[Rfam]
RNA sequence: GGCAGAGAGAGCCCGGUUCCCGCGCCCCGGCCCGCGAGCAAGGGGCGUGAGGAAAGUCCCCCACCGUCCGGACGGGCGACCGGGCGCAAGCCCGGAGCCGGAGACGGCUGGCUCUGGAACAGAAACGAGACCCCCGUCCCGACCGAUGAUCUGCGCGAACCGACCCGCAAGGGGAGGGAGCUAACCCAGAGAGGGCGGCGUGCCGGUCCCCCGGGAACGGCACGUUGUAGGGCGAGCGGCGAGAGCUGCGCGCCGACGGACGGGAACGGAUGGAACGGCGAAUCCUCGCCGGUGCAAGCCCGUGCCCGAAGGUAGUCCGGACAGCCGGCGACGGCAGGGCGCGGGUGCUUAGCCGAAUGCCGGGUCGAAACAGAAGGGGCUUACUCCUCUCAGCC
Numbered sequence: 001g002g003c004a005g006a007g008a009g010a011g012c013c014c015g016g017u018u019c020c021c022g023c024g025c026c027c028c029g030g031c032c033c034g035c036g037a038g039c040a041a042g043g044g045g046c047g048u049g050a051g052g053a054a055a056g057u058c059c060c061c062c063a064c065c066g067u068c069c070g071g072a073c074g075g076g077c078g079a080c081c082g083g084g085c086g087c088a089a090g091c092c093c094g095g096a097g098c099c100g101g102a103g104a105c106g107g108c109u110g111g112c113u114c115u116g117g118a119a120c121a122g123a124a125a126c127g128a129g130a131c132c133c134c135c136g137u138c139c140c141g142a143c144c145g146a147u148g149a150u151c152u153g154c155g156c157g158a159a160c161c162g163a164c165c166c167g168c169a170a171g172g173g174g175a176g177g178g179a180g181c182u183a184a185c186c187c188a189g190a191g192a193g194g195g196c197g198g199c200g201u202g203c204c205g206g207u208c209c210c211c212c213g214g215g216a217a218c219g220g221c222a223c224g225u226u227g228u229a230g231g232g233c234g235a236g237c238g239g240c241g242a243g244a245g246c247u248g249c250g251c252g253c254c255g256a257c258g259g260a261c262g263g264g265a266a267c268g269g270a271u272g273g274a275a276c277g278g279c280g281a282a283u284c285c286u287c288g289c290c291g292g293u294g295c296a297a298g299c300c301c302g303u304g305c306c307c308g309a310a311g312g313u314a315g316u317c318c319g320g321a322c323a324g325c326c327g328g329c330g331a332c333g334g335c336a337g338g339g340c341g342c343g344g345g346u347g348c349u350u351a352g353c354c355g356a357a358u359g360c361c362g363g364g365u366c367g368a369a370a371c372a373g374a375a376g377g378g379g380c381u382u383a384c385u386c387c388u389c390u391c392a393g394c395c
Stems, first nucleotide, its partner, number of pairs: 001395003005391005010385002012364006021049008054382003058379004062294004067321006075290005080095005096109005110285002115281001117279001131269002133264007298346009
The family of this 395-nucleotide sequence from Halolamina pelagica is "Archaeal RNase P". The organism belongs to Halolamina, within Archaea. A reference for the family is Brown (1999), "The Ribonuclease P Database", Nucleic Acids Res. About the family: Ribonuclease P (RNase P) is a ubiquitous endoribonuclease, found in archaea, bacteria and eukarya as well as chloroplasts and mitochondria. Its best characterised activity is the generation of mature 5'-ends of tRNAs by cleaving the 5'-leader elements of precursor-tRNAs. Cellular RNase Ps are ribonucleoproteins.